[Rfam]
small nucleolar RNA snoR137: a 152-nucleotide RNA from Carnegiea gigantea.
RNA sequence: GUUGCUUCUUAUGGUGAACUCUCUCUUUUUGAUUUAUGAGAGUUGUUCUAGUUUCCGAAGCAUAAAUCAAUUAUUUUUUCAGCCAGUUUUAAACAGCGCGGUGGUUUUUCUACAUCUCAAUUUCAUCGUGCUACCUGUCUCCUGGCAUAUUU
Numbered sequence: 001g002u003u004g005c006u007u008c009u010u011a012u013g014g015u016g017a018a019c020u021c022u023c024u025c026u027u028u029u030u031g032a033u034u035u036a037u038g039a040g041a042g043u044u045g046u047u048c049u050a051g052u053u054u055c056c057g058a059a060g061c062a063u064a065a066a067u068c069a070a071u072u073a074u075u076u077u078u079u080c081a082g083c084c085a086g087u088u089u090u091a092a093a094c095a096g097c098g099c100g101g102u103g104g105u106u107u108u109u110c111u112a113c114a115u116c117u118c119a120a121u122u123u124c125a126u127c128g129u130g131c132u133a134c135c136u137g138u139c140u141c142c143u144g145g146c147a148u149a150u151u152u
Base pairs, nucleotide, nucleotide: 003062004061005060006059007058008057016048017047018046019045021042022041023040024039082146083145084144085143086142095132096131097130099128100127101126102125103124

Overview:
Rfam classes the family as an H/ACA-box small nucleolar RNA. Pairs were carried over by alignment from the consensus structure, which was predicted with RNAalifold.